[Rfam]
Nucleotides: 246
Stems, first nucleotide, its partner, number of pairs: 002039002006034001009032003016026002019023001046069001048067005054061001073244004091233005096227006105158004115146001118145002122140001165218001
Number, partner (000 for none) and nucleotide at each position: 001000u002039c003038g004000a005000c006034u007000g008000u009032a010031c011030u012000c013000u014000a015000c016026a017025g018000g019023a020000u021000c022000a023019u024000g025017u026016u027000c028000g029000u030011a031010g032009u033000u034006a035000a036000u037000a038003u039002g040000u041000u042000c043000u044000g045000a046069u047000c048067u049066c050065u051064c052063a053000g054061u055000a056000c057000u058000u059000u060000a061054g062000a063052u064051g065050g066049g067048a068000a069046a070000c071000c072000a073244g074243c075242u076241g077000g078000u079000u080000g081000a082000u083000g084000a085000c086000a087000c088000g089000u090000u091233g092232u093231a094230c095229g096227c097226c098225a099224u100223c101222c102000g103000u104000a105158a106157a107156g108155g109000g110000a111000g112000g113000c114000u115146g116000u117000g118145g119144u120000u121000g122140c123000c124000a125000c126000g127000c128000c129000u130000u131000u132000u133000a134000g135000g136000u137000a138000c139000g140122g141000u142000a143000g144119a145118c146115c147000c148000u149000c150000g151000a152000u153000g154000a155108u156107c157106u158105u159000g160000c161000g162000u163000a164000g165218u166000u167000a168000g169000u170000a171000c172000u173000c174000g175000c176000c177000a178000u179000c180000u181000g182000c183000g184000c185000c186000c187000u188000u189000g190000g191000g192000c193000c194000g195000g196000g197000u198000g199000g200000u201000u202000g203000a204000c205000g206000u207000c208000u209000a210000a211000c212000u213000u214000u215000c216000u217000u218165g219000c220000a221000a222101g223100g224099a225098u226097g227096g228000u229095c230094g231093u232092a233091c234000c235000g236000u237000c238000u239000g240000a241076c242075a243074g244073c245000c246000u

Rfam assigns this 246-nucleotide sequence from Tieghemiomyces parasiticus to the family "ACEA small nucleolar RNA U3". The base pairs follow the family's consensus structure, which is taken from published work. The family's RNA type in Rfam is C/D-box small nucleolar RNA. On this family, see Zwieb, Nucleic Acids Res 1997: "The uRNA database". Taxonomically the source falls in Tieghemiomyces (Eukaryota, Kickxellomycota, Kickxellomycotina, Dimargaritaceae). Its family is annotated with RNA processing and nucleolus in the Gene Ontology. Clan: U3 clan. Rfam's curators write: Small nucleolar RNAs (snoRNAs) are involved in the processing and modification of rRNA in the nucleolus. There are two main classes of snoRNAs: the box C/D class, and the box H/ACA class. U3 snoRNA is a member of the box C/D class.